A member of the RNA family "Alphaproteobacterial sRNA ar9" from Limoniibacter endophyticus, 160 nucleotides long. By type it is a small RNA. Taxonomically the source falls in Limoniibacter (Bacteria, Pseudomonadati, Alphaproteobacteria, Bartonellaceae). A search with the family's covariance model found it, with a score of 51 bits.
RNA sequence: AAAAGAGAAUGGCAGAGAAAUCUGCCUAUGAAAUGGUCAGGUUUUGGGAGGAAUCGAAGUUCUGGCGCGCUAACCCGCUGCCGCCUUUUUAAGAAAGGAAGAGAACUUCAGACCAAAUCUUUUCCAAUAAAAAUGCGAGGCUUCGGCCUCGCAUUUUUUG
Numbered sequence: 001a002a003a004a005g006a007g008a009a010u011g012g013c014a015g016a017g018a019a020a021u022c023u024g025c026c027u028a029u030g031a032a033a034u035g036g037u038c039a040g041g042u043u044u045u046g047g048g049a050g051g052a053a054u055c056g057a058a059g060u061u062c063u064g065g066c067g068c069g070c071u072a073a074c075c076c077g078c079u080g081c082c083g084c085c086u087u088u089u090u091a092a093g094a095a096a097g098g099a100a101g102a103g104a105a106c107u108u109c110a111g112a113c114c115a116a117a118u119c120u121u122u123u124c125c126a127a128u129a130a131a132a133a134u135g136c137g138a139g140g141c142u143u144c145g146g147c148c149u150c151g152c153a154u155u156u157u158u159u160g
Stems, first nucleotide, its partner, number of pairs: 004159003011026006032122002035119001041054004057108005064082003067078003084098005134153008